Small nucleolar RNA SNORD113/SNORD114 family: a 75-nucleotide sequence. From the family's description: The imprinted human domain at 14q32 contains two clusters of tandemly repeated small nucleolar RNAs named 14q(I) and 14q(II) snoRNAs. These two clusters are named SNORD113 and SNORD114 respectively in the HGNC approved gene symbol nomenclature.
[Rfam]
RNA sequence: UGGACCAAUGAUGACAAAUGGUGGCAUUGGAGUUAUGGACGAUGAAUGAUAUGUGUCUGAAACUCUGAGGUCCAA
Numbered sequence: 001u002g003g004a005c006c007a008a009u010g011a012u013g014a015c016a017a018a019u020g021g022u023g024g025c026a027u028u029g030g031a032g033u034u035a036u037g038g039a040c041g042a043u044g045a046a047u048g049a050u051a052u053g054u055g056u057c058u059g060a061a062a063c064u065c066u067g068a069g070g071u072c073c074a075a
Stems, first nucleotide, its partner, number of pairs: 002073005
Dot-bracket structure: .(((((..............................................................)))))..

It is annotated as a C/D-box small nucleolar RNA. The family has 59 seed sequences and 5,721 matches in Rfam 15.1.